Small nucleolar RNA SNORD60: a 92-nucleotide RNA sequence from Upupa epops. The match comes from Rfam's covariance-model search (42 bits). Rfam classes the family as a C/D-box small nucleolar RNA. Rfam links the family to the GO terms RNA processing and nucleolus. The literature on the family includes a 2002 paper in Mol Cell Biol by Galardi et al., "Purified box C/D snoRNPs are able to reproduce site-specific 2'-O-methylation of target RNA in vitro".

[Rfam]
RNA sequence: GGCCCGUGACGAUCGUUCUUUACCUUUCUGACACCUCGUCAGAGGGCGGCGGGUGGCCGCGGCCGCUGCUGAUUCAUCCACGGCUGAGGCCC
Numbered sequence: 001g002g003c004c005c006g007u008g009a010c011g012a013u014c015g016u017u018c019u020u021u022a023c024c025u026u027u028c029u030g031a032c033a034c035c036u037c038g039u040c041a042g043a044g045g046g047c048g049g050c051g052g053g054u055g056g057c058c059g060c061g062g063c064c065g066c067u068g069c070u071g072a073u074u075c076a077u078c079c080a081c082g083g084c085u086g087a088g089g090c091c092c
Stems, first nucleotide, its partner, number of pairs: 001091004046066005
Dot-bracket structure: ((((.........................................(((((...........))))).....................)))).